[Rfam]
RNA sequence: GUUGAGACGCGCAUGCCGCGAAGCAGUAAAGCAAAAACCCCCGUUCCUCACCAGUUCGGGGGUUUUUGCUUU
Number, nucleotide and partner (000 for none) at each position: 001g000002u021003u020004g019005a000006g000007a000008c000009g000010c000011g000012c000013a000014u000015g000016c000017c000018g000019c004020g003021a002022a000023g000024c000025a000026g000027u000028a072029a071030a070031g069032c068033a000034a066035a065036a064037a063038c062039c061040c060041c059042c058043g057044u000045u000046c000047c000048u000049c000050a000051c000052c000053a000054g000055u000056u000057c043058g042059g041060g040061g039062g038063u037064u036065u035066u034067u000068g032069c031070u030071u029072u028
Shown here is a 72-nucleotide RNA sequence from Erwinia tracheiphila, a member of the family "Oppression of Hydrophobic ORF by sRNA". Pairs were carried over by alignment from the consensus structure, which is taken from published work.